[Rfam]
RNA sequence: UAAAUACAUAUUCUCCGAGCCCGGACGCCUACAGCCAACGAACGGCCAGGGUGAGCGGGCCGACAGGGUGCGGUGGGAAACUACCGUGCCUCCCGGUGCGGAAAGGAGGGUUUUAUCAUGUGCAA
Numbered sequence: 001u002a003a004a005u006a007c008a009u010a011u012u013c014u015c016c017g018a019g020c021c022c023g024g025a026c027g028c029c030u031a032c033a034g035c036c037a038a039c040g041a042a043c044g045g046c047c048a049g050g051g052u053g054a055g056c057g058g059g060c061c062g063a064c065a066g067g068g069u070g071c072g073g074u075g076g077g078a079a080a081c082u083a084c085c086g087u088g089c090c091u092c093c094c095g096g097u098g099c100g101g102a103a104a105g106g107a108g109g110g111u112u113u114u115a116u117c118a119u120g121u122g123c124a125a
Stems, first nucleotide, its partner, number of pairs: 003119001006116001011110006019060005026053004034046003066091011092101002

This 125-nucleotide RNA sequence from Desulfoscipio gibsoniae belongs to the Rfam family "Molybdenum/Tungsten riboswitch aptamer (Moco RNA motif)". Pairs were carried over by alignment from the consensus structure, which is taken from published work. It scores 68 bits against the family's covariance model. For this family Rfam cites "Identification of 22 candidate structured RNAs in bacteria using the CMfinder comparative genomics pipeline" (Weinberg et al., Nucleic Acids Res, 2007).